Shown here is a 132-nucleotide RNA sequence from Sander lucioperca, a member of the family "Small nucleolar RNA SNORA31". It is annotated as an H/ACA-box small nucleolar RNA. From the family's description: ACA31 (SNORA31) belongs to the H/ACA class of snoRNAs which are thought to guide the sites of modification of uridines to pseudouridines. ACA31 is predicted to guide the pseudouridylation of U3713 in 28S rRNA and U218 in 18S rRNA. This family includes the mouse homologue snoMBI-161. A search with the family's covariance model found it, with a score of 59 bits. The literature on the family includes a 2001 paper in EMBO J by Huttenhofer et al., "RNomics: an experimental approach that identifies 201 candidates for novel, small, non-messenger RNAs in mouse". Rfam links the family to the GO terms RNA processing and nucleolus. Pairs were carried over by alignment from the consensus structure, which was predicted with RNAalifold.

[Rfam]
RNA sequence: UUGCAUCGAUGGACGGACCUGAAGCAGGCUUCUUUGGCUCUGGGUUUGCAUAGAAAUGCUAAACGGAAUCUUCCUCGCUCUUCCUGACUGCUACAUUCUAUAGCAGCACAGAUUGAUUUGAGGAAUACAUGU
Numbered sequence: 001u002u003g004c005a006u007c008g009a010u011g012g013a014c015g016g017a018c019c020u021g022a023a024g025c026a027g028g029c030u031u032c033u034u035u036g037g038c039u040c041u042g043g044g045u046u047u048g049c050a051u052a053g054a055a056a057u058g059c060u061a062a063a064c065g066g067a068a069u070c071u072u073c074c075u076c077g078c079u080c081u082u083c084c085u086g087a088c089u090g091c092u093a094c095a096u097u098c099u100a101u102a103g104c105a106g107c108a109c110a111g112a113u114u115g116a117u118u119u120g121a122g123g124a125a126u127a128c129a130u131g132u
Base pairs, nucleotide, nucleotide: 003059004058005057006056012049014048015047016046017045018044019043023039024038025037027035028034072124073123074122075121076120077119080115084111085110086109088106089105090104091103092102